[Rfam]
RNA sequence: UUAAGAGGGUCAUCAAAGGGACGUAAAAGGCGAUCCCUAGUGGUGGGAGGAUGUCCUUCCACUGCGACACCGUCAAAUUGCGGGGAGUUCCUAAAGCUUCUACUACCGCGGCUCGUCGAAAGACAGAGUGCAGCACCGGGGUAAUGACCUAGGGAUGGUAAAACGUAGAAGAUGUCACAAUGGAUAAUCCGCAGCCAAGCGCUACAUGUUUUCUCUGCAAAGGAGAAACACACGCGUGCAGUUCAACGACUAAAUGGUGGUGGGUCUUGGCCAAACACAGGUCAAGGCUUAAGAUAUAGUCUAAGCCUCCUCUGAAAGGGAGAG
Numbered sequence: 001u002u003a004a005g006a007g008g009g010u011c012a013u014c015a016a017a018g019g020g021a022c023g024u025a026a027a028a029g030g031c032g033a034u035c036c037c038u039a040g041u042g043g044u045g046g047g048a049g050g051a052u053g054u055c056c057u058u059c060c061a062c063u064g065c066g067a068c069a070c071c072g073u074c075a076a077a078u079u080g081c082g083g084g085g086a087g088u089u090c091c092u093a094a095a096g097c098u099u100c101u102a103c104u105a106c107c108g109c110g111g112c113u114c115g116u117c118g119a120a121a122g123a124c125a126g127a128g129u130g131c132a133g134c135a136c137c138g139g140g141g142u143a144a145u146g147a148c149c150u151a152g153g154g155a156u157g158g159u160a161a162a163a164c165g166u167a168g169a170a171g172a173u174g175u176c177a178c179a180a181u182g183g184a185u186a187a188u189c190c191g192c193a194g195c196c197a198a199g200c201g202c203u204a205c206a207u208g209u210u211u212u213c214u215c216u217g218c219a220a221a222g223g224a225g226a227a228a229c230a231c232a233c234g235c236g237u238g239c240a241g242u243u244c245a246a247c248g249a250c251u252a253a254a255u256g257g258u259g260g261u262g263g264g265u266c267u268u269g270g271c272c273a274a275a276c277a278c279a280g281g282u283c284a285a286g287g288c289u290u291a292a293g294a295u296a297u298a299g300u301c302u303a304a305g306c307c308u309c310c311u312c313u314g315a316a317a318g319g320g321a322g323a324g
Stems, first nucleotide, its partner, number of pairs: 001017002029035001068262005074256002079193006089184003194242002199237004207230005246302001248301005264288009309322001311320003
Rfam assigns this 324-nucleotide RNA from Peltaster fructicola to the family "Group I catalytic intron". Rfam's curators write: Group I catalytic introns are large self-splicing ribozymes. They catalyse their own excision from mRNA, tRNA and rRNA precursors in a wide range of organisms. The organism belongs to Peltaster, within Eukaryota. A search with the family's covariance model found it, with a score of 106 bits.